[Rfam]
RNA: mir-392 microRNA precursor family
Organism: Caenorhabditis elegans
Nucleotides: 075
Base pairs, nucleotide, nucleotide: 004072005071007069008068009067010066012064013063014062016060017059018058019057020056021055022054023053024052026050027049028048029047030046
Number, partner (000 for none) and nucleotide at each position: 001000u002000g003000u004072u005071c006000a007069g008068u009067c010066a011000g012064c013063a014062u015000u016060c017059g018058u019057g020056g021055u022054u023053g024052a025000g026050g027049a028048u029047a030046u031000c032000g033000a034000a035000c036000a037000c038000a039000a040000a041000a042000a043000a044000a045000g046030a047029u048028a049027u050026c051000a052024u053023c054022g055021a056020u057019c058018a059017c060016g061000u062014g063013u064012g065000a066010u067009g068008a069007c070000a071005g072004a073000u074000u075000u